A member of the RNA family "Purine riboswitch aptamer" from Streptococcus infantis, 97 nucleotides long. The match comes from Rfam's covariance-model search (59 bits). Rfam describes the family as follows. Riboswitches are metabolite binding domains within certain messenger RNAs that serve as precision sensors for their corresponding targets. The family has 133 seed sequences and 4,097 matches in Rfam 15.1.
RNA sequence: CUCACUAAAAAUAUGAUUACUUAUUUAUGUCGCGAAUUGGCGUGGCGUUUCUACAAGGUACCGUAAAUACCUAACAAUGAGUAAGUCGAAGAGAGAU
Numbered sequence: 001c002u003c004a005c006u007a008a009a010a011a012u013a014u015g016a017u018u019a020c021u022u023a024u025u026u027a028u029g030u031c032g033c034g035a036a037u038u039g040g041c042g043u044g045g046c047g048u049u050u051c052u053a054c055a056a057g058g059u060a061c062c063g064u065a066a067a068u069a070c071c072u073a074a075c076a077a078u079g080a081g082u083a084a085g086u087c088g089a090a091g092a093g094a095g096a097u
Stems, first nucleotide, its partner, number of pairs: 018083008029046006056072005